Description: The family of this 587-nucleotide part of an RNA from Brucella abortus is "Bacterial large subunit ribosomal RNA". It is one of the family's seed sequences. Pairs were carried over by alignment from the consensus structure, which is taken from published work. The source organism's lineage runs through Bacteria, Pseudomonadati, Brucella, Brucella abortus and Brucella abortus bv. 2.
[Rfam]
RNA sequence: CCUGCGGUUAGACGGAAAGACCCCGUGCACCUUUACUAUAGCUUUACACUGGCAUUCGUGACGACAUGUGUAGGAUAGGUGGUAGACUUUGAAGCAGGGGCGCCAGCCUUUGUGGAGUCACCCUUGAAAUACCACCCUUGUUUUUAUGGAUGUCUAACUGCGGCCCGUUAUCCGGGUCCAGGACCGUGUAUGGUGGGUAGUUUGACUGGGGCGGUCGCCUCCUAAAGAGUAACGGAGGCGCGCGAUGGUAGGCUCAGAACGGUCGGAAAUCGUUCGUCGAGUGCAAUGGCAUAAGCCUGCCUGACUGCAAGACUGACAAGUCGAGCAGAGACGAAAGUCGGUCAUAGUGAUCCGGUGGUCCCGCGUGGAAGGGCCAUCGCUCAACGGAUAAAAGGUACGCCGGGGAUAACAGGCUGAUGACCCCCAAGAGUCCAUAUCGACGGGGUUGUUUGGCACCUCGAUGUCGACUCAUCGCAUCCUGGGGCUGGAGCAGGUCCCAAGGGUAUGGCUGUUCGCCAUUUAAAGCGGUACGUGAGUUGGGUUCAGAACGUCGUGAGACAGUUCGGUCCCUAUCUGCCGUGGGUGUA
Numbered sequence: 001c002c003u004g005c006g007g008u009u010a011g012a013c014g015g016a017a018a019g020a021c022c023c024c025g026u027g028c029a030c031c032u033u034u035a036c037u038a039u040a041g042c043u044u045u046a047c048a049c050u051g052g053c054a055u056u057c058g059u060g061a062c063g064a065c066a067u068g069u070g071u072a073g074g075a076u077a078g079g080u081g082g083u084a085g086a087c088u089u090u091g092a093a094g095c096a097g098g099g100g101c102g103c104c105a106g107c108c109u110u111u112g113u114g115g116a117g118u119c120a121c122c123c124u125u126g127a128a129a130u131a132c133c134a135c136c137c138u139u140g141u142u143u144u145u146a147u148g149g150a151u152g153u154c155u156a157a158c159u160g161c162g163g164c165c166c167g168u169u170a171u172c173c174g175g176g177u178c179c180a181g182g183a184c185c186g187u188g189u190a191u192g193g194u195g196g197g198u199a200g201u202u203u204g205a206c207u208g209g210g211g212c213g214g215u216c217g218c219c220u221c222c223u224a225a226a227g228a229g230u231a232a233c234g235g236a237g238g239c240g241c242g243c244g245a246u247g248g249u250a251g252g253c254u255c256a257g258a259a260c261g262g263u264c265g266g267a268a269a270u271c272g273u274u275c276g277u278c279g280a281g282u283g284c285a286a287u288g289g290c291a292u293a294a295g296c297c298u299g300c301c302u303g304a305c306u307g308c309a310a311g312a313c314u315g316a317c318a319a320g321u322c323g324a325g326c327a328g329a330g331a332c333g334a335a336a337g338u339c340g341g342u343c344a345u346a347g348u349g350a351u352c353c354g355g356u357g358g359u360c361c362c363g364c365g366u367g368g369a370a371g372g373g374c375c376a377u378c379g380c381u382c383a384a385c386g387g388a389u390a391a392a393a394g395g396u397a398c399g400c401c402g403g404g405g406a407u408a409a410c411a412g413g414c415u416g417a418u419g420a421c422c423c424c425c426a427a428g429a430g431u432c433c434a435u436a437u438c439g440a441c442g443g444g445g446u447u448g449u450u451u452g453g454c455a456c457c458u459c460g461a462u463g464u465c466g467a468c469u470c471a472u473c474g475c476a477u478c479c480u481g482g483g484g485c486u487g488g489a490g491c492a493g494g495u496c497c498c499a500a501g502g503g504u505a506u507g508g509c510u511g512u513u514c515g516c517c518a519u520u521u522a523a524a525g526c527g528g529u530a531c532g533u534g535a536g537u538u539g540g541g542u543u544c545a546g547a548a549c550g551u552c553g554u555g556a557g558a559c560a561g562u563u564c565g566g567u568c569c570c571u572a573u574c575u576g577c578c579g580u581g582g583g584u585g586u587a
Base pairs, nucleotide, nucleotide: 001583002582003581004580005579006578007577008576010575011574012573014570015569022404023403024402025401027400028399029396030395031394032393033392035201036200037199038198042193043192045190046189047188048187051154052153053152054151055150056149057148058147059146060145061144063142064141065140066139068137078136079135080134081133082132085119086118087117094113095112096111097110098109099108100107101106158181159180160179162178163177164176165175166174167173204216205215206214207213217239218238219237220236221235222234240385242342243341248300249299250298251297252296253295254280255279257275258274259273260272261271262270281290282289305328306327307326308325311322312321313320330339331338332337353379354378355377356376357375358374359373361372362371413454414453415452417451418448419447420446421445422444423443424442428438429437465540466538467537468536469535470532471529472528473527474526475525478503479502481498482497483496484495485494486493505519506518507517508516509515546564547563548562549561550559551558552557